[Rfam]
A member of the RNA family "Glycine riboswitch aptamer" from Ruaniaceae bacterium KH17, 83 nucleotides long.
NCBI's taxonomy places the organism under Bacteria, Bacillati, Actinomycetota, Micrococcales, Ruaniaceae.
The match comes from Rfam's covariance-model search (45 bits).
RNA sequence: CCACUCUGGAAAGCAGGCGAAAGCCUCACCCACGGUGCAAGCCCCCAGGGGUGAAGCUCUCAGGUACCACGACAGAGGGGGGA
Numbered sequence: 001c002c003a004c005u006c007u008g009g010a011a012a013g014c015a016g017g018c019g020a021a022a023g024c025c026u027c028a029c030c031c032a033c034g035g036u037g038c039a040a041g042c043c044c045c046c047a048g049g050g051g052u053g054a055a056g057c058u059c060u061c062a063g064g065u066a067c068c069a070c071g072a073c074a075g076a077g078g079g080g081g082g083a
Stems, first nucleotide, its partner, number of pairs: 001080002004077005015026004028065003032060001035059001037057001041052002